[Rfam]
RNA sequence: AACCACACUAUUAAUAAAUGGAUUCACCCGUGAGAUGACGUGACUGUUUCACCUAUAACGAGGACAUGGCAUCCUAUUACCAUCCAUCGCAUGAAAUUAAUAGGAUGCCACGUCCUCAUCCUAGAUGGAACAACCACGCCAUCUCACGGGUGAAUCCAUUUAUUGAUAGUAUGAUU
Numbered sequence: 001a002a003c004c005a006c007a008c009u010a011u012u013a014a015u016a017a018a019u020g021g022a023u024u025c026a027c028c029c030g031u032g033a034g035a036u037g038a039c040g041u042g043a044c045u046g047u048u049u050c051a052c053c054u055a056u057a058a059c060g061a062g063g064a065c066a067u068g069g070c071a072u073c074c075u076a077u078u079a080c081c082a083u084c085c086a087u088c089g090c091a092u093g094a095a096a097u098u099a100a101u102a103g104g105a106u107g108c109c110a111c112g113u114c115c116u117c118a119u120c121c122u123a124g125a126u127g128g129a130a131c132a133a134c135c136a137c138g139c140c141a142u143c144u145c146a147c148g149g150g151u152g153a154a155u156c157c158a159u160u161u162a163u164u165g166a167u168a169g170u171a172u173g174a175u176u
Base pairs, nucleotide, nucleotide: 001176002175004173005172007170009168010167011166012165013164014163015162017160018159019158021156022155023154024153025152026151027150028149030147031146032145033144035142036141037140039138041136042135045132046131047130048129051126054123055122058119063114064113065112069108070107071106072105073104074103075102076101077100078099079098086097087096
A member of the RNA family "MIR807 microRNA precursor family" from Oryza meridionalis, 176 nucleotides long. Its family is annotated with RISC complex and miRNA-mediated post-transcriptional gene silencing in the Gene Ontology. Taxonomically the source falls in Oryza (Eukaryota, Tracheophyta, Petrosaviidae, Oryzinae). The base pairs follow the family's consensus structure, which was predicted with WAR. The literature on the family includes a 2006 paper in FEBS Lett by Luo et al., "Rice embryogenic calli express a unique set of microRNAs, suggesting regulatory roles of microRNAs in plant post-embryogenic development".